[Rfam]
RNA: speF leader
Organism: Methylocystis parvus
RNA sequence: UGUCGGCUCCUCCAAAGGCCGACGCACCGAAGAGGCUUGUCUUUCUUGCCGGGCGUGCGGACGGGGUUCCCCCCUUCCAAUCGAUGGCUGUUCGGAACGUAAUCGACAUGCGCUUGCGCGUGUCUUUUGUCGUCUG
Numbered sequence: 001u002g003u004c005g006g007c008u009c010c011u012c013c014a015a016a017g018g019c020c021g022a023c024g025c026a027c028c029g030a031a032g033a034g035g036c037u038u039g040u041c042u043u044u045c046u047u048g049c050c051g052g053g054c055g056u057g058c059g060g061a062c063g064g065g066g067u068u069c070c071c072c073c074c075u076u077c078c079a080a081u082c083g084a085u086g087g088c089u090g091u092u093c094g095g096a097a098c099g100u101a102a103u104c105g106a107c108a109u110g111c112g113c114u115u116g117c118g119c120g121u122g123u124c125u126u127u128u129g130u131c132g133u134c135u136g
Base pairs, nucleotide, nucleotide: 001024002023003022004021005020006019007018008017034050035049036048057133058132059131082094083093102114104112105111